[Rfam]
RNA sequence: GCCAGCGAGAGGCGCUGCGACGGUACGCACGGGCGUUCCUGCCAGGCUCGCUGGGAUGGAGAUUAUUGUUCAACGGCGCCUUGAGUUU
Numbered sequence: 001g002c003c004a005g006c007g008a009g010a011g012g013c014g015c016u017g018c019g020a021c022g023g024u025a026c027g028c029a030c031g032g033g034c035g036u037u038c039c040u041g042c043c044a045g046g047c048u049c050g051c052u053g054g055g056a057u058g059g060a061g062a063u064u065a066u067u068g069u070u071c072a073a074c075g076g077c078g079c080c081u082u083g084a085g086u087u088u
Stems, first nucleotide, its partner, number of pairs: 002054007021041003025037001
Overview:
Shown here is an 88-nucleotide sequence from Telmatocola sphagniphila, a member of the family "SAH (S-adenosyl-L-homocysteine) riboswitch aptamer". On this family, see Wang et al., Mol Cell 2008: "Riboswitches that sense S-adenosylhomocysteine and activate genes involved in coenzyme recycling". The match comes from Rfam's covariance-model search (41 bits). NCBI's taxonomy places the organism under Bacteria, Planctomycetota, Gemmatales, Gemmataceae, Telmatocola.